[Rfam]
RNA: TPP riboswitch aptamer (THI element)
RNA sequence: UGUUGGAACUGGGGGAGUCGGUGUCCCGGCUGAGAGGAGGCGUUAAGCCUCGACCCCUGGAACCUGAUCCGGAUCAUGCCGGCGCAGGGAAGUUGCUCCUUUUCCUA
Number, nucleotide and partner (000 for none) at each position: 001u000002g000003u000004u000005g000006g000007a094008a093009c092010u091011g057012g056013g055014g054015g000016a000017g030018u029019c028020g027021g026022u000023g000024u000025c000026c021027c020028g019029g018030c017031u000032g000033a000034g000035a000036g000037g051038a050039g049040g048041c047042g000043u000044u000045a000046a000047g041048c040049c039050u038051c037052g000053a000054c014055c013056c012057c011058u000059g000060g000061a000062a000063c088064c087065u086066g085067a000068u000069c082070c081071g080072g079073a000074u000075c000076a000077u000078g000079c072080c071081g070082g069083c000084g000085c066086a065087g064088g063089g000090a000091a010092g009093u008094u007095g000096c000097u000098c000099c000100u000101u000102u000103u000104c000105c000106u000107a000